[Rfam]
RNA sequence: AAUCUGUCCCUACUUCGGGGGUGCCAAACCCCAAGCACAAGCUGACCGCCAUAUGUGAUGACGGAACACUUCCUCAGCUACCGGAGUAGGAGAAGAAUUCCAGGGAAACACUCCAUCAUGGGUUAUUACAGCCCAAGGGUGAUGGAGGCACAUUAACUGGA
Numbered sequence: 001a002a003u004c005u006g007u008c009c010c011u012a013c014u015u016c017g018g019g020g021g022u023g024c025c026a027a028a029c030c031c032c033a034a035g036c037a038c039a040a041g042c043u044g045a046c047c048g049c050c051a052u053a054u055g056u057g058a059u060g061a062c063g064g065a066a067c068a069c070u071u072c073c074u075c076a077g078c079u080a081c082c083g084g085a086g087u088a089g090g091a092g093a094a095g096a097a098u099u100c101c102a103g104g105g106a107a108a109c110a111c112u113c114c115a116u117c118a119u120g121g122g123u124u125a126u127u128a129c130a131g132c133c134c135a136a137g138g139g140u141g142a143u144g145g146a147g148g149c150a151c152a153u154u155a156a157c158u159g160g161a
Stems, first nucleotide, its partner, number of pairs: 001098001003096002009090007040079006099161005111147009
RNA: Hairpin ribozyme 1 from viruses-like metatranscriptomes